[Rfam]
RNA: Ribosomal protein L10 leader
RNA sequence: CAGAUAAUAUAAAAGCUGCCGAAGACAGCAGGUGUCCGCGGAACACAGAUUCCAAGGACGUAAGUAUAUCGCCUGCCGAGGAAGAGUAUAUGAUGACUUUUCGCCCUCACUGUCUUGCAGUGGGGGCUUUUCGGUUUGUUAA
Numbered sequence: 001c002a003g004a005u006a007a008u009a010u011a012a013a014a015g016c017u018g019c020c021g022a023a024g025a026c027a028g029c030a031g032g033u034g035u036c037c038g039c040g041g042a043a044c045a046c047a048g049a050u051u052c053c054a055a056g057g058a059c060g061u062a063a064g065u066a067u068a069u070c071g072c073c074u075g076c077c078g079a080g081g082a083a084g085a086g087u088a089u090a091u092g093a094u095g096a097c098u099u100u101u102c103g104c105c106c107u108c109a110c111u112g113u114c115u116u117g118c119a120g121u122g123g124g125g126g127c128u129u130u131u132c133g134g135u136u137u138g139u140u141a142a
Stems, first nucleotide, its partner, number of pairs: 028076006034059003103127010